[Rfam]
RNA sequence: UUGAUUACGUCCCUGCCCUUUGUAUAGUGUACUGGGGGCUAAAAGCGGUGCGAAAGCAACUCGCUAGUUUCUCCCACGAGAAGCGACACCCUCAAAUUGCGGGAAACUCCUAAAGCCUUUACUACCAAGCGUACGUGGAAACACGGGCGUGGCCGAGCUAGCAGCCCUGGGUAUGGUAACAAUGUAAAGGAUGCAACAAUGGACAAUCCGCAGCCAAGUCCUAAGGAUGUAUUGUACAUCUAUGGAUGCAGUUCACAGACUAAAUGUGGGUGGGUAUCAUGAACAUGAUGCUUAAGAUAUAGUCGGGCCCCUUGCGAGAGCAAGGA
Numbered sequence: 001u002u003g004a005u006u007a008c009g010u011c012c013c014u015g016c017c018c019u020u021u022g023u024a025u026a027g028u029g030u031a032c033u034g035g036g037g038g039c040u041a042a043a044a045g046c047g048g049u050g051c052g053a054a055a056g057c058a059a060c061u062c063g064c065u066a067g068u069u070u071c072u073c074c075c076a077c078g079a080g081a082a083g084c085g086a087c088a089c090c091c092u093c094a095a096a097u098u099g100c101g102g103g104a105a106a107c108u109c110c111u112a113a114a115g116c117c118u119u120u121a122c123u124a125c126c127a128a129g130c131g132u133a134c135g136u137g138g139a140a141a142c143a144c145g146g147g148c149g150u151g152g153c154c155g156a157g158c159u160a161g162c163a164g165c166c167c168u169g170g171g172u173a174u175g176g177u178a179a180c181a182a183u184g185u186a187a188a189g190g191a192u193g194c195a196a197c198a199a200u201g202g203a204c205a206a207u208c209c210g211c212a213g214c215c216a217a218g219u220c221c222u223a224a225g226g227a228u229g230u231a232u233u234g235u236a237c238a239u240c241u242a243u244g245g246a247u248g249c250a251g252u253u254c255a256c257a258g259a260c261u262a263a264a265u266g267u268g269g270g271u272g273g274g275u276a277u278c279a280u281g282a283a284c285a286u287g288a289u290g291c292u293u294a295a296g297a298u299a300u301a302g303u304c305g306g307g308c309c310c311c312u313u314g315c316g317a318g319a320g321c322a323a324g325g326a
Base pairs, nucleotide, nucleotide: 087272088271089270090269091268093266094265098212099211100210101209102208103207108203109202110201213252214251218247219246220245221244226240227239228238229237230236256305258304259303260302261301262300274291275290276289277288278287279286280285311324312323313322314321315320